[Rfam]
RNA: Plastid-psbN 5UTR RNA
RNA sequence: UGCGACACUCAUCAAAGGAGUAGUUCCCCAUCGAGGAACUACUUUACCGUAUUUUGAAUUC
Number, nucleotide and partner (000 for none) at each position: 001u000002g000003c000004g000005a000006c000007a000008c000009u000010c000011a000012u000013c000014a000015a000016a000017g045018g044019a043020g042021u041022a040023g039024u038025u037026c036027c035028c000029c000030a000031u000032c000033g000034a000035g027036g026037a025038a024039c023040u022041a021042c020043u019044u018045u017046a000047c000048c000049g000050u000051a000052u000053u000054u000055u000056g000057a000058a000059u000060u000061c000